The record is an 84-nucleotide RNA sequence from Triplophysa tibetana, which matches "Small nucleolar RNA SNORD100" in Rfam.
[Rfam]
RNA sequence: UGUAUCAAUGAUGAUAAUUUGGCUCCCUCUACUGAUGUCUAUGAGGAUAACUGCCAUCGUCACCUAAAUUUUGUCUGAGAUGCU
Dot-bracket structure: .(((((........................................................................))))).
Numbered sequence: 001u002g003u004a005u006c007a008a009u010g011a012u013g014a015u016a017a018u019u020u021g022g023c024u025c026c027c028u029c030u031a032c033u034g035a036u037g038u039c040u041a042u043g044a045g046g047a048u049a050a051c052u053g054c055c056a057u058c059g060u061c062a063c064c065u066a067a068a069u070u071u072u073g074u075c076u077g078a079g080a081u082g083c084u
Stems, first nucleotide, its partner, number of pairs: 002083005

The family has 26 seed sequences and 838 matches in Rfam 15.1. A reference for the family is Galardi et al. (2002), "Purified box C/D snoRNPs are able to reproduce site-specific 2'-O-methylation of target RNA in vitro", Mol Cell Biol. Its Rfam clan is "SNORD100 clan".